[Rfam]
RNA sequence: GGGUCCGUCCACUCUAAGCUCGAACACCAAGCCUGGAGCGUAAACCGUUUGGUGUUCAACCUUACAGUGAGCGGACUC
Numbered sequence: 001g002g003g004u005c006c007g008u009c010c011a012c013u014c015u016a017a018g019c020u021c022g023a024a025c026a027c028c029a030a031g032c033c034u035g036g037a038g039c040g041u042a043a044a045c046c047g048u049u050u051g052g053u054g055u056u057c058a059a060c061c062u063u064a065c066a067g068u069g070a071g072c073g074g075a076c077u078c
Base pairs, nucleotide, nucleotide: 006073007072008071010069011068012067013066015064016063017062025054026053027052028051029050030049031048032047
mir-971 microRNA precursor family: a 78-nucleotide RNA from Coptotermes formosanus. The family's consensus secondary structure was predicted with RNAalifold. Rfam 15.1 lists 118 matches to the family in 116 species.